[Rfam]
RNA sequence: CCCGUGCAAGCGCCGAGUCCUGCCCGGCACGGGGUCCACGUCCUCGGGCAGGAGCGGGGGAACCAUUCCGCGGGCGCCCUGACCUGGGCCGAGCGCCGAGCGUCACCGGGGCGUCCUUGGGGUGAAGCCGCCUACCAGCGGCCGGGAGACUCCAUCCCGAACCCGACAGCUCACCUCGCAGGCGCACGGAGAACUC
Dot-bracket structure: ..........((((...((((((((((................))))))))))((((((....((....................................................))(((.....((((......))))..((((.......))))...))).........)))))).))))............
Numbered sequence: 001c002c003c004g005u006g007c008a009a010g011c012g013c014c015g016a017g018u019c020c021u022g023c024c025c026g027g028c029a030c031g032g033g034g035u036c037c038a039c040g041u042c043c044u045c046g047g048g049c050a051g052g053a054g055c056g057g058g059g060g061a062a063c064c065a066u067u068c069c070g071c072g073g074g075c076g077c078c079c080u081g082a083c084c085u086g087g088g089c090c091g092a093g094c095g096c097c098g099a100g101c102g103u104c105a106c107c108g109g110g111g112c113g114u115c116c117u118u119g120g121g122g123u124g125a126a127g128c129c130g131c132c133u134a135c136c137a138g139c140g141g142c143c144g145g146g147a148g149a150c151u152c153c154a155u156c157c158c159g160a161a162c163c164c165g166a167c168a169g170c171u172c173a174c175c176u177c178g179c180a181g182g183c184g185c186a187c188g189g190a191g192a193a194c195u196c
Stems, first nucleotide, its partner, number of pairs: 011184004018053010054179006064119002120164003128141004144158004